[Rfam]
RNA sequence: GGGUUUUCAAUGAACAUUCACCUCCACGUGGUGAAACCCGGGAAACGUUACAUUCAGCAGCGGCUAAGAACGUUCAC
Numbered sequence: 001g002g003g004u005u006u007u008c009a010a011u012g013a014a015c016a017u018u019c020a021c022c023u024c025c026a027c028g029u030g031g032u033g034a035a036a037c038c039c040g041g042g043a044a045a046c047g048u049u050a051c052a053u054u055c056a057g058c059a060g061c062g063g064c065u066a067a068g069a070a071c072g073u074u075c076a077c
Base pairs, nucleotide, nucleotide: 001039002038003037004036005035006034007033020032021031022030046062047061048060049059